[Rfam]
Rfam assigns this 177-nucleotide RNA from Methylobacterium sp. BTF04 to the family "caulobacter sRNA CC2171".
It is annotated as a small RNA.
A search with the family's covariance model found it, with a score of 93 bits.
Pairs were carried over by alignment from the consensus structure, which was predicted with RNAalifold.
RNA sequence: CAACGAACGAAAGGAGGUGAUCCAGUGUCUCAUUGUCAUCAGCCGCUCUCUCCGGCUCAUCGGACCUGGACCGUCGCCUCCGGUGCUGUUUUCUAGCAUCAGGGCGCCGUUCUGACGGGUUCGGCCGGACGACCAAGUGGUUCGGCAAUGGAAGGGCCGCCCCGAUGGGGCGGCCCU
Number, nucleotide and partner (000 for none) at each position: 001c000002a000003a000004c000005g000006a000007a000008c000009g000010a000011a000012a000013g000014g000015a000016g023017g022018u000019g000020a000021u000022c017023c016024a000025g000026u000027g000028u000029c000030u000031c150032a149033u148034u147035g146036u145037c144038a000039u000040c000041a000042g000043c000044c000045g000046c000047u000048c000049u064050c063051u062052c000053c000054g000055g000056c000057u000058c000059a000060u000061c000062g051063g050064a049065c000066c000067u000068g000069g000070a074071c000072c000073g000074u070075c109076g108077c000078c104079u000080c103081c102082g000083g000084u000085g097086c096087u095088g094089u000090u000091u000092u000093c000094u088095a087096g086097c085098a000099u000100c000101a000102g081103g080104g078105c000106g000107c000108c076109g075110u000111u000112c000113u000114g000115a000116c000117g000118g000119g000120u000121u000122c000123g000124g000125c000126c000127g000128g000129a000130c000131g000132a000133c000134c000135a000136a000137g000138u000139g000140g000141u000142u000143c000144g037145g036146c035147a034148a033149u032150g031151g000152a000153a177154g176155g175156g174157c173158c172159g171160c170161c169162c168163c167164g000165a000166u000167g163168g162169g161170g160171c159172g158173g157174c156175c155176c154177u153